This 79-nucleotide sequence from Rhizobium johnstonii belongs to the Rfam family "Makes More Granules Regulator RNA (mmgR)". Lineage of the source: Bacteria > Hyphomicrobiales > Rhizobiaceae > Rhizobium > Rhizobium johnstonii. The pairing is the family consensus, mapped onto this sequence.
RNA sequence: AGCUGUUCCCCUCUGGAGGUUUUUGACCUUCACACUUCAUGGGCCUCGGUUCUUCCGACGGCCCAUUUUUUUGUUCCCA
Numbered sequence: 001a002g003c004u005g006u007u008c009c010c011c012u013c014u015g016g017a018g019g020u021u022u023u024u025g026a027c028c029u030u031c032a033c034a035c036u037u038c039a040u041g042g043g044c045c046u047c048g049g050u051u052c053u054u055c056c057g058a059c060g061g062c063c064c065a066u067u068u069u070u071u072u073g074u075u076c077c078c079a
Stems, first nucleotide, its partner, number of pairs: 008018001010016002041064005046058004